[Rfam]
RNA sequence: GCCUAGGGUAGAGGCGCUGUGAUUAAGAGUAUAUAUCUGGAAUCUUGCAAGAUGUAGAUGGGUAUAGAAAGGAGUCAUGGCCGAAGGUCAAAAAUGUUGCAGAUUUUUGGUCUGGCCAUGCAUAAAAUAUAUGCAUGGCUGUCACUUAUUUAAGUGGAGAACUACAGGGUCA
Numbered sequence: 001g002c003c004u005a006g007g008g009u010a011g012a013g014g015c016g017c018u019g020u021g022a023u024u025a026a027g028a029g030u031a032u033a034u035a036u037c038u039g040g041a042a043u044c045u046u047g048c049a050a051g052a053u054g055u056a057g058a059u060g061g062g063u064a065u066a067g068a069a070a071g072g073a074g075u076c077a078u079g080g081c082c083g084a085a086g087g088u089c090a091a092a093a094a095u096g097u098u099g100c101a102g103a104u105u106u107u108u109g110g111u112c113u114g115g116c117c118a119u120g121c122a123u124a125a126a127a128u129a130u131a132u133g134c135a136u137g138g139c140u141g142u143c144a145c146u147u148a149u150u151u152a153a154g155u156g157g158a159g160a161a162c163u164a165c166a167g168g169g170u171c172a
Stems, first nucleotide, its partner, number of pairs: 008165004016081009032066008085113011114140011142157006
RNA: Lysine riboswitch aptamer